Background
Rfam assigns this 106-nucleotide RNA from Odoribacter splanchnicus to the family "Bacteroidales small SRP". The base pairs follow the family's consensus structure, which is taken from published work. Its family is annotated with SRP-dependent cotranslational protein targeting to membrane, signal sequence recognition and signal recognition particle, plasma membrane targeting in the Gene Ontology. Rfam classes the family as a non-coding RNA gene. The source organism's lineage runs through Bacteria, Pseudomonadati, Odoribacteraceae, Odoribacter and Odoribacter splanchnicus. The literature on the family includes a 2020 paper in Nat Commun by Ryan et al., "A high-resolution transcriptome map identifies small RNA regulation of metabolism in the gut microbe Bacteroides thetaiotaomicron".
RNA sequence: UGUGCCCGGGUAAGUCCUAUGCGACCAGCUCCUGCAGAACCCCCCCAGGGUCGGAAGGCAGCAAGGGUAUGUGGUUGUAGCGGUGCGACAUAGUCAGCUUACCCGU
Numbered sequence: 001u002g003u004g005c006c007c008g009g010g011u012a013a014g015u016c017c018u019a020u021g022c023g024a025c026c027a028g029c030u031c032c033u034g035c036a037g038a039a040c041c042c043c044c045c046c047a048g049g050g051u052c053g054g055a056a057g058g059c060a061g062c063a064a065g066g067g068u069a070u071g072u073g074g075u076u077g078u079a080g081c082g083g084u085g086c087g088a089c090a091u092a093g094u095c096a097g098c099u100u101a102c103c104c105g106u
Base pairs, nucleotide, nucleotide: 008104009103010102011101012100013099014098015097017093018092019091020090021089022087023086024084025083